[Rfam]
RNA sequence: AGAUUGAUGAUGACUCCCUCCUCAACUGCAUUCUUUUAAAGCUGCACAAACCUGAGUGAGAACUCACUACCGUCAUUCUCAUCAGUGCU
Numbered sequence: 001a002g003a004u005u006g007a008u009g010a011u012g013a014c015u016c017c018c019u020c021c022u023c024a025a026c027u028g029c030a031u032u033c034u035u036u037u038a039a040a041g042c043u044g045c046a047c048a049a050a051c052c053u054g055a056g057u058g059a060g061a062a063c064u065c066a067c068u069a070c071c072g073u074c075a076u077u078c079u080c081a082u083c084a085g086u087g088c089u
Stems, first nucleotide, its partner, number of pairs: 001089002003086003029058005035050003
The record is an 89-nucleotide RNA from Felis catus, which matches "Small nucleolar RNA SNORD116" in Rfam.
It is one of the family's seed sequences.
For this family Rfam cites "Identification of brain-specific and imprinted small nucleolar RNA genes exhibiting an unusual genomic organization" (Cavaille et al., Proc Natl Acad Sci U S A, 2000).
The source organism's lineage runs through Eukaryota, Deuterostomia, Carnivora, Felidae and Felis.
The family's RNA type in Rfam is C/D-box small nucleolar RNA.